[Rfam]
The family of this 91-nucleotide RNA from Neomicrococcus aestuarii is "SAM riboswitch aptamer (S box leader)". It scores 57 bits against the family's covariance model.

RNA sequence: ACACCAUCAAGAGCGACCGAGAGACCUGGCUCCGUGACGUCGCAGCAACCACCUCUUUGGAGGCCGGUGCUACCGCCAGGACCGAUGGAAU
Dot-bracket structure: (..(((((....(((((...(((..[[[[)))......)))))((((.((.((((....))))..))))))...(]]]]...))))))..)

Rfam's curators write: The SAM riboswitch is found upstream of a number of genes which code for proteins involved in methionine or cysteine biosynthesis in Gram-positive bacteria. The SAM riboswitch acts at the level of transcription termination control.